[Rfam]
RNA sequence: AGGUCAUUUCAAAGAGGGCUUGCAUGGCUAUAAAACCAGAAGCUCUUAACGCUGUGACCUAAGAGGAAAAGUCUCUAUAGGAUGCCAUGAUUAAUUGAUAUAUUAUCAUGGUCUCUUACUAAUGAGAUACAAGU
Numbered sequence: 001a002g003g004u005c006a007u008u009u010c011a012a013a014g015a016g017g018g019c020u021u022g023c024a025u026g027g028c029u030a031u032a033a034a035a036c037c038a039g040a041a042g043c044u045c046u047u048a049a050c051g052c053u054g055u056g057a058c059c060u061a062a063g064a065g066g067a068a069a070a071g072u073c074u075c076u077a078u079a080g081g082a083u084g085c086c087a088u089g090a091u092u093a094a095u096u097g098a099u100a101u102a103u104u105a106u107c108a109u110g111g112u113c114u115c116u117u118a119c120u121a122a123u124g125a126g127a128u129a130c131a132a133g134u
Stems, first nucleotide, its partner, number of pairs: 002059006014047008023039001026037002072127004079117004087109004092105004
The family of this 134-nucleotide RNA sequence from Monodelphis domestica is "Small nucleolar RNA SNORA25". The family's consensus secondary structure was predicted with RNAfold.